[Rfam]
RNA sequence: GGAGCAUCGGAGAUGAGAGCUGAUUAAAUCGUCAUCCUUGCACUUUGAUUGUCAGUGAAGAUAAAAAAUGGGGAAUUUACAGUCUGAGAUGCUC
Dot-bracket structure: .(((((((...............................................................................)))))))